The record is a 101-nucleotide RNA from Miscanthus lutarioriparius, which matches "Small nucleolar RNA Z221/R21b" in Rfam. The match comes from Rfam's covariance-model search (72 bits). The source organism's lineage runs through Eukaryota, Streptophyta, Poaceae, Andropogonodae and Miscanthus. The base pairs follow the family's consensus structure, which was predicted with WAR.
RNA sequence: GGGCAAUGAUGAUACAAAGUCAUGCACCACUCUGAAUGAGGGGAUUAUUUUCUCUCUUUGGGCUGACAAACAAACUUUCUACCCAUUUUUCGUCUGAGCCU
Numbered sequence: 001g002g003g004c005a006a007u008g009a010u011g012a013u014a015c016a017a018a019g020u021c022a023u024g025c026a027c028c029a030c031u032c033u034g035a036a037u038g039a040g041g042g043g044a045u046u047a048u049u050u051u052c053u054c055u056c057u058u059u060g061g062g063c064u065g066a067c068a069a070a071c072a073a074a075c076u077u078u079c080u081a082c083c084c085a086u087u088u089u090u091c092g093u094c095u096g097a098g099c100c101u
Base pairs, nucleotide, nucleotide: 001101002100003099004098